[Rfam]
RNA sequence: AGUGGCUCAUUCACCUCCUUAUGUCAGCCCCGCAAGGUUGUGCUACAUAAGCCUCGAAUGACGCACAAAAAGGUGCCUGCCGUCCGCCUUCUGAUCAUUGUGACAUUGUCCUUUAUCAGGCUCCGGGCGCAACGUUGAGUAAGGCACCGCCUG
Number, nucleotide and partner (000 for none) at each position: 001a000002g000003u000004g000005g064006c063007u061008c060009a059010u058011u057012c056013a000014c000015c000016u000017c000018c000019u050020u049021a048022u047023g046024u045025c000026a044027g043028c042029c000030c000031c000032g000033c000034a000035a000036g000037g000038u000039u000040g000041u000042g028043c027044u026045a024046c023047a022048u021049a020050a019051g000052c000053c000054u000055c000056g012057a011058a010059u009060g008061a007062c000063g006064c005065a000066c000067a000068a000069a000070a000071a000072g148073g147074u146075g145076c144077c143078u142079g000080c000081c129082g128083u127084c126085c125086g000087c000088c000089u000090u000091c000092u118093g117094a116095u115096c000097a113098u000099u000100g000101u000102g000103a000104c000105a000106u000107u000108g000109u000110c000111c000112u000113u097114u000115a095116u094117c093118a092119g000120g000121c000122u000123c000124c000125g085126g084127g083128c082129g081130c000131a000132a140133c139134g000135u000136u000137g000138a000139g133140u132141a000142a078143g077144g076145c075146a074147c073148c072149g000150c000151c000152u000153g000